This 98-nucleotide sequence from Phtheirospermum japonicum belongs to the Rfam family "Small nucleolar RNA snoR27". The literature on the family includes a 2001 paper in RNA by Brown et al., "Multiple snoRNA gene clusters from Arabidopsis". Rfam classes the family as a C/D-box small nucleolar RNA. NCBI's taxonomy places the organism under Eukaryota, Streptophytina, Mesangiospermae, lamiids, Phtheirospermum. The family has 6 seed sequences and 649 matches in Rfam 15.1. A search with the family's covariance model found it, with a score of 72 bits. The base pairs follow the family's consensus structure, which was predicted with WAR.

RNA sequence: AUUGGAUCGAUGAUGCGUUGAAGAAAAUACUGCGUUAUCUUUCUGAAAAUUUCCACUUCGGAAAUGAGGACAAUUUUUGUACCUUCCUGAGAUCCCAU
Numbered sequence: 001a002u003u004g005g006a007u008c009g010a011u012g013a014u015g016c017g018u019u020g021a022a023g024a025a026a027a028u029a030c031u032g033c034g035u036u037a038u039c040u041u042u043c044u045g046a047a048a049a050u051u052u053c054c055a056c057u058u059c060g061g062a063a064a065u066g067a068g069g070a071c072a073a074u075u076u077u078u079g080u081a082c083c084u085u086c087c088u089g090a091g092a093u094c095c096c097a098u
Stems, first nucleotide, its partner, number of pairs: 001098002004095004